[Rfam]
RNA sequence: UAUAUUUAAAGUCUAUUGUUAUUAUUCAUAUUAAUUUUUUUACAAGUUUUUCGAUUUUAUAUGGGUUUAUUUUUGUAAACAGAGAGAAUAUCGAAUUUUAGGAAUAGAUAAUAAUAAUUUAUAAUUUUGAUUAGAUCUAUAUGUUAAUGCUAUAAAAUGGGUGUGGAAACUUAGAAAAAAUAAAUUAAAAAAUUUAAUAAUAAAUUACAUAUUACUUAUUAGUCAGAAAUGGAUGCCAGCCGUUGCGGUAAUUUCUAUGCUUUUGAAUAUUAUACAAAUAUCAAAAUGUAAAUUGUUAAUGUAAUACUUUAGCCAAUAAAAAAUGUAUGAUAAGUUUUAUUUGUUUUUAAACACCGUUUGGUAGACGCAAAUAUAAAAUUAUAGUAAUUAUAUAUUAUAUUAUAUUAUAUUUAUUCAAAUAACUAAAAUAGUAAAAUUUAAUGUAUUUGACACCAUGAUAAGGCUAAUAGCUUGGAAUUGUAAAUUUUAUAAUCAAAACAUAUUAUUUAUAUUAAAAAGGUAAAUUUAGAUAAAACAAUAAAUUAAAAAGGUAUUGUUGCCCACCAAUUUUUAUAAUAAAAAUAACGUGCAGUAAUUAAUAUAUUUAUAAAAAUAUAUUCCGACGAAAU
Numbered sequence: 001u002a003u004a005u006u007u008a009a010a011g012u013c014u015a016u017u018g019u020u021a022u023u024a025u026u027c028a029u030a031u032u033a034a035u036u037u038u039u040u041u042a043c044a045a046g047u048u049u050u051u052c053g054a055u056u057u058u059a060u061a062u063g064g065g066u067u068u069a070u071u072u073u074u075g076u077a078a079a080c081a082g083a084g085a086g087a088a089u090a091u092c093g094a095a096u097u098u099u100a101g102g103a104a105u106a107g108a109u110a111a112u113a114a115u116a117a118u119u120u121a122u123a124a125u126u127u128u129g130a131u132u133a134g135a136u137c138u139a140u141a142u143g144u145u146a147a148u149g150c151u152a153u154a155a156a157a158u159g160g161g162u163g164u165g166g167a168a169a170c171u172u173a174g175a176a177a178a179a180a181u182a183a184a185u186u187a188a189a190a191a192a193u194u195u196a197a198u199a200a201u202a203a204a205u206u207a208c209a210u211a212u213u214a215c216u217u218a219u220u221a222g223u224c225a226g227a228a229a230u231g232g233a234u235g236c237c238a239g240c241c242g243u244u245g246c247g248g249u250a251a252u253u254u255c256u257a258u259g260c261u262u263u264u265g266a267a268u269a270u271u272a273u274a275c276a277a278a279u280a281u282c283a284a285a286a287u288g289u290a291a292a293u294u295g296u297u298a299a300u301g302u303a304a305u306a307c308u309u310u311a312g313c314c315a316a317u318a319a320a321a322a323a324u325g326u327a328u329g330a331u332a333a334g335u336u337u338u339a340u341u342u343g344u345u346u347u348u349a350a351a352c353a354c355c356g357u358u359u360g361g362u363a364g365a366c367g368c369a370a371a372u373a374u375a376a377a378a379u380u381a382u383a384g385u386a387a388u389u390a391u392a393u394a395u396u397a398u399a400u401u402a403u404a405u406u407a408u409a410u411u412u413a414u415u416c417a418a419a420u421a422a423c424u425a426a427a428a429u430a431g432u433a434a435a436a437u438u439u440a441a442u443g444u445a446u447u448u449g450a451c452a453c454c455a456u457g458a459u460a461a462g463g464c465u466a467a468u469a470g471c472u473u474g475g476a477a478u479u480g481u482a483a484a485u486u487u488u489a490u491a492a493u494c495a496a497a498a499c500a501u502a503u504u505a506u507u508u509a510u511a512u513u514a515a516a517a518a519g520g521u522a523a524a525u526u527u528a529g530a531u532a533a534a535a536c537a538a539u540a541a542a543u544u545a546a547a548a549a550g551g552u553a554u555u556g557u558u559g560c561c562c563a564c565c566a567a568u569u570u571u572u573a574u575a576a577u578a579a580a581a582a583u584a585a586c587g588u589g590c591a592g593u594a595a596u597u598a599a600u601a602u603a604u605u606u607a608u609a610a611a612a613a614u615a616u617a618u619u620c621c622g623a624c625g626a627a628a629u
Stems, first nucleotide, its partner, number of pairs: 015593004036081001038079002041077003044072004051065002054062002102416006109407005114398005120392007130382002133379001136375001138373003142369003148363005160355005167348003172343002185298001187296001189294001200281003205276001216266003221261003225256006234250004239246002315341007324334001436543005442537003446533002452527001456522002463494001465492001467490004499520001501518001503516002550561004562589003567583007598619009
RNA: Trypanosomatid mitochondrial small subunit ribosomal RNA